Rfam assigns this 81-nucleotide sequence from Trifolium medium to the family "tRNA". The match comes from Rfam's covariance-model search (54 bits). The family's RNA type in Rfam is transfer RNA. Pairs were carried over by alignment from the consensus structure, which is taken from published work.
RNA sequence: GUUGAGAUGGCCGAGUUGAUCUAAGGCGCUAGAUUAAGGUUCUAGUCCGAAAGGGCGUGGGUUCAAAUCCCGCUCUCAACA
Numbered sequence: 001g002u003u004g005a006g007a008u009g010g011c012c013g014a015g016u017u018g019a020u021c022u023a024a025g026g027c028g029c030u031a032g033a034u035u036a037a038g039g040u041u042c043u044a045g046u047c048c049g050a051a052a053g054g055g056c057g058u059g060g061g062u063u064c065a066a067a068u069c070c071c072g073c074u075c076u077c078a079a080c081a
Stems, first nucleotide, its partner, number of pairs: 001080007010027003029045005057073005